Shown here is a 77-nucleotide RNA sequence from Pseudoselenomonas ruminantium, a member of the family "ZMP/ZTP riboswitch aptamer (pfl RNA motif)".
The family has 185 seed sequences and 3,295 matches in Rfam 15.1.
RNA sequence: UUGAUGCUGUGCGACUGACGGAAGUGGAUAACCACAGGGAGCACAGGGAAGAAAAGCCGACCGUCUGGGUGAAUACC
Numbered sequence: 001u002u003g004a005u006g007c008u009g010u011g012c013g014a015c016u017g018a019c020g021g022a023a024g025u026g027g028a029u030a031a032c033c034a035c036a037g038g039g040a041g042c043a044c045a046g047g048g049a050a051g052a053a054a055a056g057c058c059g060a061c062c063g064u065c066u067g068g069g070u071g072a073a074u075a076c077c
Base pairs, nucleotide, nucleotide: 005048007046008045009044010043011042012041015038016037017065018064019063020062021061024035025034026033027032056070057069058068
It scores 51 bits against the family's covariance model.